DUF3800-III RNA: a 111-nucleotide sequence. The sequence is in the family's curated seed alignment.

RNA sequence: GAACGGUAUCGUAAUACCUGAUGACUUUGGUCGUCUUAGACGUCCUAGCUGUUCCUGCAAUGGAACGGGACCAGAAAUCAGACUGAAAUCGGAGCUCAGGUUGAGCCGUUC
Numbered sequence: 001g002a003a004c005g006g007u008a009u010c011g012u013a014a015u016a017c018c019u020g021a022u023g024a025c026u027u028u029g030g031u032c033g034u035c036u037u038a039g040a041c042g043u044c045c046u047a048g049c050u051g052u053u054c055c056u057g058c059a060a061u062g063g064a065a066c067g068g069g070a071c072c073a074g075a076a077a078u079c080a081g082a083c084u085g086a087a088a089u090c091g092g093a094g095c096u097c098a099g100g101u102u103g104a105g106c107c108g109u110u111c
Stems, first nucleotide, its partner, number of pairs: 001111006009104003017100005025094003032042004049068007